[Rfam]
RNA sequence: AGCCGCGCAAUGAGCACAGAGCGAACUAUUCUUUCGCCUUUUACUAAAGAAUACCGUGUGCACGUUGCAAAAAGCGGCAUACGCUUAUUUUUGGAGGGCUCCACUUAACUGUAGGAGCC
Numbered sequence: 001a002g003c004c005g006c007g008c009a010a011u012g013a014g015c016a017c018a019g020a021g022c023g024a025a026c027u028a029u030u031c032u033u034u035c036g037c038c039u040u041u042u043a044c045u046a047a048a049g050a051a052u053a054c055c056g057u058g059u060g061c062a063c064g065u066u067g068c069a070a071a072a073a074g075c076g077g078c079a080u081a082c083g084c085u086u087a088u089u090u091u092u093g094g095a096g097g098g099c100u101c102c103a104c105u106u107a108a109c110u111g112u113a114g115g116a117g118c119c
Stems, first nucleotide, its partner, number of pairs: 003077004008067005014061005027053008097119006

A member of the RNA family "U5 spliceosomal RNA" from Durio zibethinus, 119 nucleotides long. The family has 180 seed sequences and 28,527 matches in Rfam 15.1. Rfam links the family to the GO terms U5 snRNP and spliceosomal tri-snRNP complex assembly.